[Rfam]
RNA sequence: AAUACCCUGCUACUUGCGAAGUCUCAAGUUCCACUUGGGAUACGCCCAAACACAAUCCUUUAUGGACUUGUAACGGGCAUAGCAAGAGCGGGGCUUU
Numbered sequence: 001a002a003u004a005c006c007c008u009g010c011u012a013c014u015u016g017c018g019a020a021g022u023c024u025c026a027a028g029u030u031c032c033a034c035u036u037g038g039g040a041u042a043c044g045c046c047c048a049a050a051c052a053c054a055a056u057c058c059u060u061u062a063u064g065g066a067c068u069u070g071u072a073a074c075g076g077g078c079a080u081a082g083c084a085a086g087a088g089c090g091g092g093g094c095u096u097u
Stems, first nucleotide, its partner, number of pairs: 001097002005093007014085004021041009
Shown here is a 97-nucleotide RNA from Calothrix sp. PCC 6303, a member of the family "DUF3800-VIII RNA". Bacteroidetes, Cyanobacteria, Firmicutes, Planctomycetes (1 example), Proteobacteria, Tenericutes (1 example). The family's RNA type in Rfam is small RNA.